Source information:
This 96-nucleotide RNA sequence from Photobacterium profundum belongs to the Rfam family "Tryptophan operon leader". Pairs were carried over by alignment from the consensus structure, which is taken from published work. About the family: At least 6 amino acid operons are known to be regulated by attenuation. In each a leader sequence of 150-200 bp is found upstream of the first gene in the operon. This leader sequence can assume two different secondary structures known as the terminator and the anti-terminator structure. In each case the leader also codes for very short peptide sequence that is rich in the end product amino acid of the operon. The terminator structure is recognised as a termination signal for RNA polymerase and the operon is not transcribed. This structure forms when the cell has an excess of the regulatory amino acid and ribosome movement over the leader transcript is not impeded. When there is a deficiency of the charged tRNA of the regulatory amino acid the ribosome translating the leader peptide stalls and the antiterminator structure can form. This allows RNA polymerase to transcribe the operon. In the Rfam alignment the consensus structure is of the terminator structure. Rfam links the family to the GO terms tryptophan biosynthetic process and transcriptional attenuation by ribosome. The organism belongs to Photobacterium profundum, within Bacteria.
RNA sequence: AUCUCAUGGUGGUGGCACUUCUCUAUACGGGUUGUGUGAUUUGCUGUUCCUAACGGACAGAAUAGACAUAAGCCCGCCAGAUGCGGGCUUUUUCAU
Numbered sequence: 001a002u003c004u005c006a007u008g009g010u011g012g013u014g015g016c017a018c019u020u021c022u023c024u025a026u027a028c029g030g031g032u033u034g035u036g037u038g039a040u041u042u043g044c045u046g047u048u049c050c051u052a053a054c055g056g057a058c059a060g061a062a063u064a065g066a067c068a069u070a071a072g073c074c075c076g077c078c079a080g081a082u083g084c085g086g087g088c089u090u091u092u093u094c095a096u
Base pairs, nucleotide, nucleotide: 009044010043011042012041015037016036017035018034021031022030023029071089072088073087074086075085076084077083
Background: The match comes from Rfam's covariance-model search (42 bits).